[Rfam]
RNA sequence: GGCGAUAAACGGCGCGUGGAAUAAGUGUUGUGGACCCGGGGGCGGUACCCGGCGUUUCCACCAGUAUUUUCGCGAUGCGGCCCCGUGGGCCGGUGCAUCCGAAAGAUGGGAACGAAACAGGCUCGACACGCAUGGUAAAGACCCGCCUUUUGCCCGGCAUUGUACCGCCGUUAUCGGGCUAAACAUACAAGUGCCAAUGAUAACUCUGAGGUGCUCGCUGUCGCUGCAUAA
Numbered sequence: 001g002g003c004g005a006u007a008a009a010c011g012g013c014g015c016g017u018g019g020a021a022u023a024a025g026u027g028u029u030g031u032g033g034a035c036c037c038g039g040g041g042g043c044g045g046u047a048c049c050c051g052g053c054g055u056u057u058c059c060a061c062c063a064g065u066a067u068u069u070u071c072g073c074g075a076u077g078c079g080g081c082c083c084c085g086u087g088g089g090c091c092g093g094u095g096c097a098u099c100c101g102a103a104a105g106a107u108g109g110g111a112a113c114g115a116a117a118c119a120g121g122c123u124c125g126a127c128a129c130g131c132a133u134g135g136u137a138a139a140g141a142c143c144c145g146c147c148u149u150u151u152g153c154c155c156g157g158c159a160u161u162g163u164a165c166c167g168c169c170g171u172u173a174u175c176g177g178g179c180u181a182a183a184c185a186u187a188c189a190a191g192u193g194c195c196a197a198u199g200a201u202a203a204c205u206c207u208g209a210g211g212u213g214c215u216c217g218c219u220g221u222c223g224c225u226g227c228a229u230a231a
Stems, first nucleotide, its partner, number of pairs: 001154005014144001016142002026132003030129003036052005053114007155170004

Shown here is a 231-nucleotide sequence from Novacetimonas maltaceti, a member of the family "permuted transfer-messenger RNA". From the family's description: Bacterial tmRNA, also known as 10Sa RNA or SsrA, is named for its dual tRNA and mRNA-like properties. Its family is annotated with RNA catabolic process in the Gene Ontology. It is annotated as a non-coding RNA gene.